[Rfam]
RNA sequence: ACCAGGCUGCCGUGAAAGCGCAAGCCAAUGCGCUUACCGUUGAGGUUGGCAGCGAGCAGUAUCAUACCACAGGGUAGGGAUACUGCGGGAUCCGCCGGGUAUACCGGCAAA
Numbered sequence: 001a002c003c004a005g006g007c008u009g010c011c012g013u014g015a016a017a018g019c020g021c022a023a024g025c026c027a028a029u030g031c032g033c034u035u036a037c038c039g040u041u042g043a044g045g046u047u048g049g050c051a052g053c054g055a056g057c058a059g060u061a062u063c064a065u066a067c068c069a070c071a072g073g074g075u076a077g078g079g080a081u082a083c084u085g086c087g088g089g090a091u092c093c094g095c096c097g098g099g100u101a102u103a104c105c106g107g108c109a110a111a
Stems, first nucleotide, its partner, number of pairs: 034043003056086008065076003094108005